A member of the RNA family "Small nucleolar RNA SNORD71" from Sciurus carolinensis, 83 nucleotides long. snoRNA HBII-239 belongs to the family of C/D snoRNAs.It is the human orthologue of the mouse MBII-239 described and is predicted to guide 2'O-ribose methylation of 5.8S rRNA on residue U14. The match comes from Rfam's covariance-model search (39 bits). Taxonomically the source falls in Sciurus (Eukaryota, Dipnotetrapodomorpha, Mammalia, Sciuridae).

[Rfam]
RNA sequence: AUUUGACAGAGUAUAAAAAUAAGAAAACCCAUUGGCUAUGUGUCUUAUCACAGUGCUAAAACUCCAGUUGUUGACAGAAAAGA
Numbered sequence: 001a002u003u004u005g006a007c008a009g010a011g012u013a014u015a016a017a018a019a020u021a022a023g024a025a026a027a028c029c030c031a032u033u034g035g036c037u038a039u040g041u042g043u044c045u046u047a048u049c050a051c052a053g054u055g056c057u058a059a060a061a062c063u064c065c066a067g068u069u070g071u072u073g074a075c076a077g078a079a080a081a082g083a
Stems, first nucleotide, its partner, number of pairs: 002078003005072002009030001011028002014025001032059005040051003
It is annotated as an H/ACA-box small nucleolar RNA. The family has 18 seed sequences and 556 matches in Rfam 15.1.